[Rfam]
RNA: Small nucleolar RNA SNORD93
RNA sequence: UGGCCAAGGAUGAAAAUUCUAAUCUGAUUUGCUAUGCUUCUGCUCUGAUGGGUUAAAGGAUUUACCUGAGGCCA
Number, nucleotide and partner (000 for none) at each position: 001u000002g073003g072004c071005c070006a000007a000008g000009g000010a000011u000012g000013a000014a000015a000016a000017u000018u000019c000020u000021a000022a000023u000024c000025u000026g000027a000028u000029u000030u000031g000032c000033u000034a000035u000036g000037c000038u000039u000040c000041u000042g000043c000044u000045c000046u000047g000048a000049u000050g000051g000052g000053u000054u000055a000056a000057a000058g000059g000060a000061u000062u000063u000064a000065c000066c000067u000068g000069a000070g005071g004072c003073c002074a000